Description: Shown here is a 114-nucleotide RNA from Kryptolebias marmoratus, a member of the family "U5 spliceosomal RNA". It scores 86 bits against the family's covariance model. Rfam describes the family as follows. U5 RNA is a component of both types of known spliceosome. Rfam classes the family as a spliceosomal small nuclear RNA. Rfam 15.1 lists 28,527 matches to the family in 2,489 species. Taxonomically the source falls in Kryptolebias (Eukaryota, Actinopterygii, Aplocheiloidei, Rivulidae).
[Rfam]
RNA sequence: ACACUCUUGUUUCUCUGCAGAUCGUACAAAUCUUUCGCCUUUUACUAAAGAUUUCCGUGAAGAGGAACAAUAAGAGUUGGACUCAAUUUUUUAAUGCUCUGCGAAAGUGGGGCC
Numbered sequence: 001a002c003a004c005u006c007u008u009g010u011u012u013c014u015c016u017g018c019a020g021a022u023c024g025u026a027c028a029a030a031u032c033u034u035u036c037g038c039c040u041u042u043u044a045c046u047a048a049a050g051a052u053u054u055c056c057g058u059g060a061a062g063a064g065g066a067a068c069a070a071u072a073a074g075a076g077u078u079g080g081a082c083u084c085a086a087u088u089u090u091u092u093a094a095u096g097c098u099c100u101g102c103g104a105a106a107g108u109g110g111g112g113c114c
Base pairs, nucleotide, nucleotide: 003077004076005075006074009068010067011066012065013064014063015062016061018059019058028054029053030052031051032050033049034048035047096113097112098111099110100109101108